[Rfam]
The record is an 87-nucleotide sequence, which matches "ZMP/ZTP riboswitch aptamer (pfl RNA motif)" in Rfam. The family's consensus secondary structure is taken from published work. It is one of the family's seed sequences.
RNA sequence: ACACCUCUUCGCCACUGGCAGAUAAGUGGACAAAACCACAGGGCGGCGCAGGGGAUUGGGUUUACGCCGGCUGCCUGGGCAACAUGG
Number, nucleotide and partner (000 for none) at each position: 001a000002c000003a000004c054005c053006u052007c051008u050009u000010c048011g047012c046013c000014a000015c043016u042017g075018g074019c073020a072021g071022a000023u000024a000025a000026g039027u038028g037029g036030a000031c000032a000033a000034a000035a000036c029037c028038a027039c026040a000041g000042g016043g015044c000045g000046g012047c011048g010049c000050a008051g007052g006053g005054g004055a000056u000057u000058g000059g000060g000061u000062u000063u000064a000065c000066g080067c079068c078069g000070g000071c021072u020073g019074c018075c017076u000077g000078g068079g067080c066081a000082a000083c000084a000085u000086g000087g000